[Rfam]
RNA sequence: GUCGCGUGAGCGCCGUAGGCAGGAGCGGGGGACCCAGGUAGGCCGCCGCACCCGAAGGAGGGAGCGGCUCGGGGCGUAUCCGCCCGCGUCAGCGGACGGACGGGCACUCUCCGGCCCGAGCCCGACAGCUCACCUCGCAGGCGUCGGUGAGGAGACGA
Numbered sequence: 001g002u003c004g005c006g007u008g009a010g011c012g013c014c015g016u017a018g019g020c021a022g023g024a025g026c027g028g029g030g031g032a033c034c035c036a037g038g039u040a041g042g043c044c045g046c047c048g049c050a051c052c053c054g055a056a057g058g059a060g061g062g063a064g065c066g067g068c069u070c071g072g073g074g075c076g077u078a079u080c081c082g083c084c085c086g087c088g089u090c091a092g093c094g095g096a097c098g099g100a101c102g103g104g105c106a107c108u109c110u111c112c113g114g115c116c117c118g119a120g121c122c123c124g125a126c127a128g129c130u131c132a133c134c135u136c137g138c139a140g141g142c143g144u145c146g147g148u149g150a151g152g153a154g155a156c157g158a
Stems, first nucleotide, its partner, number of pairs: 002024002025138006035071001072123003080099003102117004
RNA: c-di-AMP riboswitch aptamer (ydaO/yuaA leader)
Organism: Streptomyces sp. RKND-216